[Rfam]
RNA sequence: AAAAAGGGUUAGUUGGAUAAGUAUGCCAUACUUGCUGGCGUUUGGUGAGUGUCGUAUGGCAAUCAAGACAUAUGGCUAACAUAAUUUAUAGUACCUUAUACGAUUGGCUCGCUUGAAAAAAAAUGUUGAAAUUGUAUUU
Numbered sequence: 001a002a003a004a005a006g007g008g009u010u011a012g013u014u015g016g017a018u019a020a021g022u023a024u025g026c027c028a029u030a031c032u033u034g035c036u037g038g039c040g041u042u043u044g045g046u047g048a049g050u051g052u053c054g055u056a057u058g059g060c061a062a063u064c065a066a067g068a069c070a071u072a073u074g075g076c077u078a079a080c081a082u083a084a085u086u087u088a089u090a091g092u093a094c095c096u097u098a099u100a101c102g103a104u105u106g107g108c109u110c111g112c113u114u115g116a117a118a119a120a121a122a123a124u125g126u127u128g129a130a131a132u133u134g135u136a137u138u139u
Stems, first nucleotide, its partner, number of pairs: 008080005014028003029051009052075007098137004103132002
Dot-bracket structure: .......(((((.(((.........)))(((((((((.....)))))))))(((((((..........)))))))))))).................((((.((..........................)).))))..
Background
The record is a 139-nucleotide RNA sequence from Citrus unshiu, which matches "U11 spliceosomal RNA" in Rfam. Its family is annotated with U11 snRNP, mRNA 5'-splice site recognition and pre-mRNA 5'-splice site binding in the Gene Ontology. Lineage of the source: Eukaryota > Magnoliopsida > rosids > Sapindales > Citrus.